Shown here is a 63-nucleotide RNA from Panagrellus redivivus, a member of the family "mir-7948 microRNA precursor family". The source organism's lineage runs through Eukaryota, Metazoa, Eumetazoa, Rhabditida and Panagrellus. Its family is annotated with RISC complex and miRNA-mediated post-transcriptional gene silencing in the Gene Ontology.
RNA sequence: CAUCGGCCCAAUGUUGCGUUGCUGUGUCAUUUGAAAUCAGCAAACGCACAUGGAGUCUGUGAU
Numbered sequence: 001c002a003u004c005g006g007c008c009c010a011a012u013g014u015u016g017c018g019u020u021g022c023u024g025u026g027u028c029a030u031u032u033g034a035a036a037u038c039a040g041c042a043a044a045c046g047c048a049c050a051u052g053g054a055g056u057c058u059g060u061g062a063u
Stems, first nucleotide, its partner, number of pairs: 001061003005057003009053001011051004016047005021041004
Pairs were carried over by alignment from the consensus structure, which was predicted with RNAalifold.